[Rfam]
RNA: Small nucleolar RNA U54
Organism: Oryza punctata
RNA sequence: UGCUCAAUGAUUAUUAAGUCAUGUUAAGCCAUGGCAAUAUACGCUAUUCUGAAUCAUAUAGGAUGUCAUAAACAUUAUGAGAGCA
Numbered sequence: 001u002g003c004u005c006a007a008u009g010a011u012u013a014u015u016a017a018g019u020c021a022u023g024u025u026a027a028g029c030c031a032u033g034g035c036a037a038u039a040u041a042c043g044c045u046a047u048u049c050u051g052a053a054u055c056a057u058a059u060a061g062g063a064u065g066u067c068a069u070a071a072a073c074a075u076u077a078u079g080a081g082a083g084c085a
Base pairs, nucleotide, nucleotide: 001085002084003083004082005081